[Rfam]
RNA sequence: GUCUCCAUCUUACGAGGCAGCAUUGGAUGGCAUUGUUCUCUCUAAUACUGCCUGGUAAUGAUGAUGAU
Numbered sequence: 001g002u003c004u005c006c007a008u009c010u011u012a013c014g015a016g017g018c019a020g021c022a023u024u025g026g027a028u029g030g031c032a033u034u035g036u037u038c039u040c041u042c043u044a045a046u047a048c049u050g051c052c053u054g055g056u057a058a059u060g061a062u063g064a065u066g067a068u
Base pairs, nucleotide, nucleotide: 002067003066006063007062008061009060010058011057012056013055015053016052017051018050019049020048022046023045024044025043026042027041
A member of the RNA family "mir-8/mir-141/mir-200 microRNA precursor family" from Megalops atlanticus, 68 nucleotides long.
Lineage of the source: Eukaryota > Vertebrata > Actinopterygii > Elopocephalai > Megalops.
A reference for the family is Lagos-Quintana et al. (2001), "Identification of novel genes coding for small expressed RNAs", Science.
The match comes from Rfam's covariance-model search (69 bits).